[Rfam]
RNA sequence: UAACCAUCAAGAGUGGCUGAGAGAUCUGGCUCGACGACGCCGCAGCAACCGCCUUAAUCCGACGAUUCGGUAACGAAUCAGCGCGAAGGACGGUGCUACCGCCAGAACCGAUGGAGU
Numbered sequence: 001u002a003a004c005c006a007u008c009a010a011g012a013g014u015g016g017c018u019g020a021g022a023g024a025u026c027u028g029g030c031u032c033g034a035c036g037a038c039g040c041c042g043c044a045g046c047a048a049c050c051g052c053c054u055u056a057a058u059c060c061g062a063c064g065a066u067u068c069g070g071u072a073a074c075g076a077a078u079c080a081g082c083g084c085g086a087a088g089g090a091c092g093g094u095g096c097u098a099c100c101g102c103c104a105g106a107a108c109c110g111a112u113g114g115a116g117u
Stems, first nucleotide, its partner, number of pairs: 004114005013043005021032003026105004044097004049093002052089004101109001
RNA: SAM riboswitch aptamer (S box leader)
Organism: Neomicrococcus aestuarii